[Rfam]
RNA sequence: UCAGAGGGAAGCUCACCAUUGAGGUCACAUACAGGGUGCUUGUCACCUACUCAUCAAUACCUCUGGGAAGGUCUGAGACAAGAGCCAUUAGCUGCCCUUACAGGGCAUCACCUGCUGCAGGGGAAUGAGUUACCAGCUAUGUGGGGCCCUGGAUUGGGACAUGUGUGGCAGGAGAAGCCAGAGGGGUUGCUCCCAUGGCAGAUGCCCAUUCUCUCAAGGGCUUUGGGACAGGCUCAUGGCUGGCACCACUGAGCACAAUGGGAUGAGGUGAGGCCUUGUGGGCCUCAUAACCCAACUCAGACUACUCUCCUGCUGA
Numbered sequence: 001u002c003a004g005a006g007g008g009a010a011g012c013u014c015a016c017c018a019u020u021g022a023g024g025u026c027a028c029a030u031a032c033a034g035g036g037u038g039c040u041u042g043u044c045a046c047c048u049a050c051u052c053a054u055c056a057a058u059a060c061c062u063c064u065g066g067g068a069a070g071g072u073c074u075g076a077g078a079c080a081a082g083a084g085c086c087a088u089u090a091g092c093u094g095c096c097c098u099u100a101c102a103g104g105g106c107a108u109c110a111c112c113u114g115c116u117g118c119a120g121g122g123g124a125a126u127g128a129g130u131u132a133c134c135a136g137c138u139a140u141g142u143g144g145g146g147c148c149c150u151g152g153a154u155u156g157g158g159a160c161a162u163g164u165g166u167g168g169c170a171g172g173a174g175a176a177g178c179c180a181g182a183g184g185g186g187u188u189g190c191u192c193c194c195a196u197g198g199c200a201g202a203u204g205c206c207c208a209u210u211c212u213c214u215c216a217a218g219g220g221c222u223u224u225g226g227g228a229c230a231g232g233c234u235c236a237u238g239g240c241u242g243g244c245a246c247c248a249c250u251g252a253g254c255a256c257a258a259u260g261g262g263a264u265g266a267g268g269u270g271a272g273g274c275c276u277u278g279u280g281g282g283c284c285u286c287a288u289a290a291c292c293c294a295a296c297u298c299a300g301a302c303u304a305c306u307c308u309c310c311u312g313c314u315g316a
Stems, first nucleotide, its partner, number of pairs: 001316004007310003012267004016262002021063004034048005073300005083241004093107005108124002111121003125237007145222006268288007
The record is a 316-nucleotide RNA from Gopherus agassizii, which matches "Nuclear RNase P" in Rfam. A search with the family's covariance model found it, with a score of 194 bits. The family's RNA type in Rfam is ribozyme. On this family, see Marquez et al., RNA 2005: "Structural implications of novel diversity in eucaryal RNase P RNA". The organism belongs to Gopherus, within Eukaryota.